[Rfam]
RNA sequence: AUAUUUCUUCGGGGCAGGGUGUAAUUCCCGACCGACGGUGACGAGUUUACUCGAAGUCCGUGACCCACAUUUUUGUGGUUGAGCCAGUGAGAAUCUGGCACCGACAGUUAAAGUCUGGAUGGGAGAAGAAAAAU
Dot-bracket structure: ...(((((((......(((.......))).[[((((((.................[[))))...((..........))....(((((.......)))))]])).(((.....]]))).......)))))))...
The family of this 134-nucleotide sequence from Enterococcus hirae is "FMN riboswitch aptamer (RFN element)". Pairs were carried over by alignment from the consensus structure, which is taken from published work. The source organism's lineage runs through Bacteria, Bacillota, Lactobacillales, Enterococcus and Enterococcus hirae.